[Rfam]
RNA sequence: CCCUCACUUUAGGGGUGUUUCCCGGAAAUAAAUCACCGGGAAGCUGAGAUGAGACCCUCAGACCUGACGCAGUUCAUACUGCCGUAGGGAAAAGUAACUGAACUCUC
Numbered sequence: 001c002c003c004u005c006a007c008u009u010u011a012g013g014g015g016u017g018u019u020u021c022c023c024g025g026a027a028a029u030a031a032a033u034c035a036c037c038g039g040g041a042a043g044c045u046g047a048g049a050u051g052a053g054a055c056c057c058u059c060a061g062a063c064c065u066g067a068c069g070c071a072g073u074u075c076a077u078a079c080u081g082c083c084g085u086a087g088g089g090a091a092a093a094g095u096a097a098c099u100g101a102a103c104u105c106u107c
Base pairs, nucleotide, nucleotide: 006095007094008093009092010091011058012057013056014055016052017044018043019042020041021040022039023038024037025036063088064087065086066085069082070081071080072079
Background: The family of this 107-nucleotide RNA from Chitinophaga oryziterrae is "TPP riboswitch aptamer (THI element)". The match comes from Rfam's covariance-model search (62 bits). Lineage of the source: Bacteria > Pseudomonadati > Chitinophagia > Chitinophagaceae > Chitinophaga.